[Rfam]
RNA sequence: GGUUUAAAGGGUGCGUAGGCGGCCUUUUAAGUCAGCGGUGAAAGUCUGUGGCUCAACCAUAGAAUUGCCGUUGAAACUGGGAGGCUUGAGUAUGUUUGAGGCAGGCGGAAUGCGUGGUGUAGCGGUGAAAUGCUUAGAUAUCACGCAGAACCCCGAUUGCGAAGGCAGCCUGCCAAGCCAUGACUGACGCUGAUGCACGAAAGCGUGGGGAUCAAACAGGAUUAGAUACCCUGGUAGUCCACGCAGUAAACGAUGAUCACUAGCUGUUUGCGAUACACAGUAAGCGGCACAGCGAAAGCGUUAAGUGAUCCACCUGGGGAGUACGCCGGCAACGGUGAAACUCAAAGGAAU
Numbered sequence: 001g002g003u004u005u006a007a008a009g010g011g012u013g014c015g016u017a018g019g020c021g022g023c024c025u026u027u028u029a030a031g032u033c034a035g036c037g038g039u040g041a042a043a044g045u046c047u048g049u050g051g052c053u054c055a056a057c058c059a060u061a062g063a064a065u066u067g068c069c070g071u072u073g074a075a076a077c078u079g080g081g082a083g084g085c086u087u088g089a090g091u092a093u094g095u096u097u098g099a100g101g102c103a104g105g106c107g108g109a110a111u112g113c114g115u116g117g118u119g120u121a122g123c124g125g126u127g128a129a130a131u132g133c134u135u136a137g138a139u140a141u142c143a144c145g146c147a148g149a150a151c152c153c154c155g156a157u158u159g160c161g162a163a164g165g166c167a168g169c170c171u172g173c174c175a176a177g178c179c180a181u182g183a184c185u186g187a188c189g190c191u192g193a194u195g196c197a198c199g200a201a202a203g204c205g206u207g208g209g210g211a212u213c214a215a216a217c218a219g220g221a222u223u224a225g226a227u228a229c230c231c232u233g234g235u236a237g238u239c240c241a242c243g244c245a246g247u248a249a250a251c252g253a254u255g256a257u258c259a260c261u262a263g264c265u266g267u268u269u270g271c272g273a274u275a276c277a278c279a280g281u282a283a284g285c286g287g288c289a290c291a292g293c294g295a296a297a298g299c300g301u302u303a304a305g306u307g308a309u310c311c312a313c314c315u316g317g318g319g320a321g322u323a324c325g326c327c328g329g330c331a332a333c334g335g336u337g338a339a340a341c342u343c344a345a346a347g348g349a350a351u
Base pairs, nucleotide, nucleotide: 001314002313003312009311011198012197013196014195016192018191019190020189022085023084024083025082026081027080028079030078031077032074033073034072035071036070037069038068039067040066045063046062047061048060049059050058051057089185090184091183092181093180094179096177097176100174101173102172103171104170105169106168107151111147112146113145114144115143116142117141118140122133123132124131159166160165203244204243205242206241207240208239213237217233218232219231220230255310256309257308258307259306260305263288264287265286266285267284268283269282270281271280292299293298316343317342318341325336326335327334328333
This 351-nucleotide part of an RNA from bacterium enrichment culture clone Ecwsrb007 belongs to the Rfam family "Bacterial small subunit ribosomal RNA".
Rfam links the family to the GO terms ribosome and structural constituent of ribosome.
The family's consensus secondary structure is taken from published work.